Rfam assigns this 156-nucleotide RNA from Streptomyces sp. YIM 121038 to the family "c-di-AMP riboswitch aptamer (ydaO/yuaA leader)".
Rfam describes the family as follows. This family represents a conserved RNA structure found upstream of the ydaO and yuaA genes in Bacillus subtilis and related genes in other bacteria.
NCBI's taxonomy places the organism under Bacteria, Actinomycetota, Actinomycetes, Streptomycetaceae, Streptomyces.
The base pairs follow the family's consensus structure.
A search with the family's covariance model found it, with a score of 64 bits.

RNA sequence: GUCCGCCGCGCGCCGAUCCCGACGCGCCCGGAGCCGGGGACCCACCAUGAUCCUGGGGUGAAUCCGUCCCGCUGCGCCUCGCACGGGCCGGUAGGGCAGCCCUUCCGAACCGCCCGAACCCGACAGCUAACCCGGUAGGCGGUCCACGGAAGGAGU
Numbered sequence: 001g002u003c004c005g006c007c008g009c010g011c012g013c014c015g016a017u018c019c020c021g022a023c024g025c026g027c028c029c030g031g032a033g034c035c036g037g038g039g040a041c042c043c044a045c046c047a048u049g050a051u052c053c054u055g056g057g058g059u060g061a062a063u064c065c066g067u068c069c070c071g072c073u074g075c076g077c078c079u080c081g082c083a084c085g086g087g088c089c090g091g092u093a094g095g096g097c098a099g100c101c102c103u104u105c106c107g108a109a110c111c112g113c114c115c116g117a118a119c120c121c122g123a124c125a126g127c128u129a130a131c132c133c134g135g136u137a138g139g140c141g142g143u144c145c146a147c148g149g150a151a152g153g154a155g156u
Base pairs, nucleotide, nucleotide: 011141012140013139014138019031020030033136034135035134036133037132038131043055044054056121057120058119064091065090066089094115095114096113097112